The family of this 96-nucleotide sequence from Atlauavirus tusconc8 is "PhotoRC-II RNA".
[Rfam]
RNA sequence: UCUUAUUACAACACUUCCAUCUAACCGAGACCUAUGGGGAAGUAAAAUACGUCUCUAAUACCUACACCGGAGGGUGGUGUAGGAAUAAUACUAUCG
Numbered sequence: 001u002c003u004u005a006u007u008a009c010a011a012c013a014c015u016u017c018c019a020u021c022u023a024a025c026c027g028a029g030a031c032c033u034a035u036g037g038g039g040a041a042g043u044a045a046a047a048u049a050c051g052u053c054u055c056u057a058a059u060a061c062c063u064a065c066a067c068c069g070g071a072g073g074g075u076g077g078u079g080u081a082g083g084a085a086u087a088a089u090a091c092u093a094u095c096g
Stems, first nucleotide, its partner, number of pairs: 014042005020037002027055005061083007
The organism belongs to Atlauavirus tusconc8, within Viruses. The family's consensus secondary structure is taken from published work. The match comes from Rfam's covariance-model search (70 bits).